[Rfam]
Description: Flavo-1 RNA: a 91-nucleotide sequence.
RNA sequence: AAGCGUUAAGGAUAGUAGCGGCAUCCUUUUUUUGGCUACCCACAAUAAUAGUUUUGGCCAAAAAAAGAUAUAGCGAAUAGCCUGCCCGAUA
Numbered sequence: 001a002a003g004c005g006u007u008a009a010g011g012a013u014a015g016u017a018g019c020g021g022c023a024u025c026c027u028u029u030u031u032u033u034g035g036c037u038a039c040c041c042a043c044a045a046u047a048a049u050a051g052u053u054u055u056g057g058c059c060a061a062a063a064a065a066a067g068a069u070a071u072a073g074c075g076a077a078u079a080g081c082c083u084g085c086c087c088g089a090u091a
Stems, first nucleotide, its partner, number of pairs: 009083003013079002018074002023069003029064010
Rfam's curators put it in the seed alignment.